RNA sequence: GAACAGAUACAAAACUGGCUUUCACUCUGAUCUGACAGAGUUUUUUUUCUUUUCUGAGAUCAUUGUGAAAGCUGAUUUUGUCGA
Dot-bracket structure: ........((((((.((((((((((..((((((.......................))))))..)))))))))).))))))...
Numbered sequence: 001g002a003a004c005a006g007a008u009a010c011a012a013a014a015c016u017g018g019c020u021u022u023c024a025c026u027c028u029g030a031u032c033u034g035a036c037a038g039a040g041u042u043u044u045u046u047u048u049c050u051u052u053u054c055u056g057a058g059a060u061c062a063u064u065g066u067g068a069a070a071g072c073u074g075a076u077u078u079u080g081u082c083g084a
Stems, first nucleotide, its partner, number of pairs: 009081006016074010028062006
The family of this 84-nucleotide sequence from Rhodnius prolixus is "bantam microRNA precursor family". The base pairs follow the family's consensus structure, which was predicted with RNAalifold. The family is grouped with related families in Rfam's "mir-81 clan".